[Rfam]
RNA sequence: ACGCUCGAACCCGUAGAUCCGAACUUGUGUGUGUGAAUUAGCACAAUUCAACAUUGAUGACAUCACAAGUACGAUUCUAAGGGUCCAAGCUGA
Numbered sequence: 001a002c003g004c005u006c007g008a009a010c011c012c013g014u015a016g017a018u019c020c021g022a023a024c025u026u027g028u029g030u031g032u033g034u035g036a037a038u039u040a041g042c043a044c045a046a047u048u049c050a051a052c053a054u055u056g057a058u059g060a061c062a063u064c065a066c067a068a069g070u071a072c073g074a075u076u077c078u079a080a081g082g083g084u085c086c087a088a089g090c091u092g093a
Base pairs, nucleotide, nucleotide: 003090004089005088007086010083011082012081015078016077017076020073021072023070024069025068026067027066028065029064